[Rfam]
Nucleotides: 072
Base pairs, nucleotide, nucleotide: 003069004068005067009063010062011061012060013059014058015057016056020052021051022050023049024048026047027046028045
Number, partner (000 for none) and nucleotide at each position: 001000c002000g003069c004068u005067g006000g007000a008000u009063g010062u011061a012060a013059c014058a015057g016056c017000a018000a019000c020052u021051c022050c023049a024048u025000g026047u027046g028045g029000a030000a031000g032000c033000u034000g035000u036000a037000u038000g039000u040000g041000a042000g043000u044000u045028c046027c047026a048024g049023u050022g051021g052020a053000a054000g055000u056016g057015c058014u059013g060012u061011u062010a063009c064000c065000u066000g067005c068004a069003g070000a071000g072000a

Rfam assigns this 72-nucleotide RNA from Takifugu rubripes to the family "mir-194 microRNA precursor family".
Rfam 15.1 lists 936 matches to the family in 630 species.
The literature on the family includes a 2003 paper in RNA by Lagos-Quintana et al., "New microRNAs from mouse and human".
The organism belongs to Takifugu, within Eukaryota.
The base pairs follow the family's consensus structure, which was predicted with RNAalifold.